This 102-nucleotide RNA sequence from Alkalihalobacillus trypoxylicola belongs to the Rfam family "Purine riboswitch aptamer".
A search with the family's covariance model found it, with a score of 82 bits.
The family's consensus secondary structure is taken from published work.
The organism belongs to Alkalihalobacillus, within Bacteria.
[Rfam]
RNA sequence: AGUGUAUAGAGUUAUUACCUUCGUAUAUCCUUGGGAAUAAGGCCUAAGAGUUUCUACCGGAUUUCCUUAAAAAAUCUGACUAUGAAGGCAGAAUAAAUCAAG
Numbered sequence: 001a002g003u004g005u006a007u008a009g010a011g012u013u014a015u016u017a018c019c020u021u022c023g024u025a026u027a028u029c030c031u032u033g034g035g036a037a038u039a040a041g042g043c044c045u046a047a048g049a050g051u052u053u054c055u056a057c058c059g060g061a062u063u064u065c066c067u068u069a070a071a072a073a074a075u076c077u078g079a080c081u082a083u084g085a086a087g088g089c090a091g092a093a094u095a096a097a098u099c100a101a102g
Stems, first nucleotide, its partner, number of pairs: 018088008030048006058078007